[Rfam]
RNA sequence: CCGGUGAACCGCGGGAGCCUGGACGUGCCGGGCUGAGAGGGGACCGUCCCGGUCCCGACCGUCGAACCUGAUCCGGGUCAUGCCGGCGCAGGGAGGGAUCAGCAGUGGAGCG
Numbered sequence: 001c002c003g004g005u006g007a008a009c010c011g012c013g014g015g016a017g018c019c020u021g022g023a024c025g026u027g028c029c030g031g032g033c034u035g036a037g038a039g040g041g042g043a044c045c046g047u048c049c050c051g052g053u054c055c056c057g058a059c060c061g062u063c064g065a066a067c068c069u070g071a072u073c074c075g076g077g078u079c080a081u082g083c084c085g086g087c088g089c090a091g092g093g094a095g096g097g098a099u100c101a102g103c104a105g106u107g108g109a110g111c112g
Stems, first nucleotide, its partner, number of pairs: 006100002009097002011062004017033005040056007067092004073086004
This 112-nucleotide sequence from Actinomycetospora corticicola belongs to the Rfam family "TPP riboswitch aptamer (THI element)". It scores 58 bits against the family's covariance model.